[Rfam]
Nucleotides: 097
Base pairs, nucleotide, nucleotide: 004091005090006089007088008087010083011082012081013080014079015075017074018073019072020071024066025065026064027063028062034059035058036057037056042051043050044049
Number, partner (000 for none) and nucleotide at each position: 001000c002000g003000u004091u005090g006089g007088u008087c009000c010083c011082u012081c013080c014079g015075c016000a017074a018073c019072a020071a021000u022000a023000a024066g025065c026064c027063g028062u029000g030000a031000a032000u033000c034059u035058g036057g037056u038000c039000a040000g041000g042051c043050c044049c045000g046000g047000a048000a049044g050043g051042g052000a053000g054000c055000a056037g057036c058035c059034a060000c061000a062028g063027c064026g065025g066024u067000g068000g069000a070000u071020u072019u073018g074017u075015g076000u077000g078000c079014c080013g081012g082011a083010g084000u085000g086000u087008g088007g089006c090005u091004g092000g093000c094000g095000g096000a097000g